[Rfam]
Record summary:
Shown here is an 81-nucleotide RNA sequence from Bifidobacterium samirii, a member of the family "tRNA". The organism belongs to Bifidobacterium, within Bacteria. It is annotated as a transfer RNA. A search with the family's covariance model found it, with a score of 54 bits.
RNA sequence: GCGCGAGUGGCGGAAUUGGUAGACGCCCAGGAUUUAGGUUCCUGUGCCUUAGGCGUGUGGGUUCGAGUCCCAUCUCGCGCA
Numbered sequence: 001g002c003g004c005g006a007g008u009g010g011c012g013g014a015a016u017u018g019g020u021a022g023a024c025g026c027c028c029a030g031g032a033u034u035u036a037g038g039u040u041c042c043u044g045u046g047c048c049u050u051a052g053g054c055g056u057g058u059g060g061g062u063u064c065g066a067g068u069c070c071c072a073u074c075u076c077g078c079g080c081a
Stems, first nucleotide, its partner, number of pairs: 001080007010026003028044005057073005